The family of this 105-nucleotide RNA from Struthio camelus is "Small nucleolar RNA SNORD125". It is annotated as a C/D-box small nucleolar RNA. NCBI's taxonomy places the organism under Eukaryota, Metazoa, Deuterostomia, Chordata, Struthio camelus. For this family Rfam cites "snoSeeker: an advanced computational package for screening of guide and orphan snoRNA genes in the human genome" (Yang et al., Nucleic Acids Res, 2006). The base pairs follow the family's consensus structure, which was predicted with WAR. The match comes from Rfam's covariance-model search (63 bits).
[Rfam]
RNA sequence: GCUGAGAAGAGCCUCACGUGAUGAUACUUCUCUUGCUGAUGGCUGUGGUGGUGAUGAUCAUCAAACCGGAGCCUCUAAGAAGUUGACUGAAGAGGCCAUUCCCCU
Numbered sequence: 001g002c003u004g005a006g007a008a009g010a011g012c013c014u015c016a017c018g019u020g021a022u023g024a025u026a027c028u029u030c031u032c033u034u035g036c037u038g039a040u041g042g043c044u045g046u047g048g049u050g051g052u053g054a055u056g057a058u059c060a061u062c063a064a065a066c067c068g069g070a071g072c073c074u075c076u077a078a079g080a081a082g083u084u085g086a087c088u089g090a091a092g093a094g095g096c097c098a099u100u101c102c103c104c105u
Base pairs, nucleotide, nucleotide: 007100008099011096012095013094014093015092